[Rfam]
RNA sequence: ACAAAAGAGGCAGGAAGUCUAAAUUCUUGCCGUUUUCGCGGUCAGUCUUGGGAGGAUUCGAUCUUAGGCGCGCUUGUCGCUGCCCCGGUAACGGUUACAGAUCACGCGAAACCUGAAAAACAAGGCUGAAAUGCCUUGUUUUUUUUU
Numbered sequence: 001a002c003a004a005a006a007g008a009g010g011c012a013g014g015a016a017g018u019c020u021a022a023a024u025u026c027u028u029g030c031c032g033u034u035u036u037c038g039c040g041g042u043c044a045g046u047c048u049u050g051g052g053a054g055g056a057u058u059c060g061a062u063c064u065u066a067g068g069c070g071c072g073c074u075u076g077u078c079g080c081u082g083c084c085c086c087g088g089u090a091a092c093g094g095u096u097a098c099a100g101a102u103c104a105c106g107c108g109a110a111a112c113c114u115g116a117a118a119a120a121c122a123a124g125g126c127u128g129a130a131a132u133g134c135c136u137u138g139u140u141u142u143u144u145u146u147u
Stems, first nucleotide, its partner, number of pairs: 003147004011029006037108004045057004060103005067084003070080003085094003119140008
Alphaproteobacterial sRNA ar9: a 147-nucleotide RNA from Agrobacterium tumefaciens. The pairing is the family consensus, mapped onto this sequence. A reference for the family is del Val et al. (2012), "A survey of sRNA families in alpha-proteobacteria", RNA Biol. The organism belongs to Agrobacterium tumefaciens complex, within Bacteria. The sequence is in the family's curated seed alignment.